[Rfam]
RNA: Bacterial RNase P class A
Organism: Bartonella sp. 'sheep blood one'
RNA sequence: UCGGGAUCCGGGGAGGAAAGUCCGGGCUCCAUGGAAAAACGGUGCCGGGUAACACCCGGCGGGGGUGACCCUAGGGAAAGUGCCACAGAAAGCAAACCGCCUAUUUCAUAGGUAAGGGUGAAAGGGUGGGGUAAGAGCCCACCGCGCACUCAGUAAUGAGUGUGGCAAGGUAAACCCCACCGGGAGCAAGACCGAAUAGAAAUGACGUGCAAGAUUUUACUUGCAGCCAGUUUCCAGGUGAGUCAUUUGGGUAGGUUGCACGAGGCGGAUGGUAACAUCCGUCCCAGAUGAAUGGUUGCCAUGUAGAGUGUAAACUUUACCAUACAGAACCCGGCUUACGAAUUC
Dot-bracket structure: ((([[[.[[........(((.(((((((((.......[.((((((((((.....)))))(((((....)))).)((...(((((............((((((((...))))))..)).......((((((.......))))))(((((((((....)))))))).)..)))..)))))))))))))...((((......((((((......................((.(.]...).))..)))))).....))))......((((((((....))))))))..........]].].]].............................)))))))).)))....
Numbered sequence: 001u002c003g004g005g006a007u008c009c010g011g012g013g014a015g016g017a018a019a020g021u022c023c024g025g026g027c028u029c030c031a032u033g034g035a036a037a038a039a040c041g042g043u044g045c046c047g048g049g050u051a052a053c054a055c056c057c058g059g060c061g062g063g064g065g066u067g068a069c070c071c072u073a074g075g076g077a078a079a080g081u082g083c084c085a086c087a088g089a090a091a092g093c094a095a096a097c098c099g100c101c102u103a104u105u106u107c108a109u110a111g112g113u114a115a116g117g118g119u120g121a122a123a124g125g126g127u128g129g130g131g132u133a134a135g136a137g138c139c140c141a142c143c144g145c146g147c148a149c150u151c152a153g154u155a156a157u158g159a160g161u162g163u164g165g166c167a168a169g170g171u172a173a174a175c176c177c178c179a180c181c182g183g184g185a186g187c188a189a190g191a192c193c194g195a196a197u198a199g200a201a202a203u204g205a206c207g208u209g210c211a212a213g214a215u216u217u218u219a220c221u222u223g224c225a226g227c228c229a230g231u232u233u234c235c236a237g238g239u240g241a242g243u244c245a246u247u248u249g250g251g252u253a254g255g256u257u258g259c260a261c262g263a264g265g266c267g268g269a270u271g272g273u274a275a276c277a278u279c280c281g282u283c284c285c286a287g288a289u290g291a292a293u294g295g296u297u298g299c300c301a302u303g304u305a306g307a308g309u310g311u312a313a314a315c316u317u318u319a320c321c322a323u324a325c326a327g328a329a330c331c332c333g334g335c336u337u338a339c340g341a342a343u344u345c
Stems, first nucleotide, its partner, number of pairs: 001341003004300002006297001008295002018337003022334005027186004038233001040182005045059005060074001061072004075177002080175002082171003097117002099113006125143006144166001145164008190257004200248006228240002231237001264283008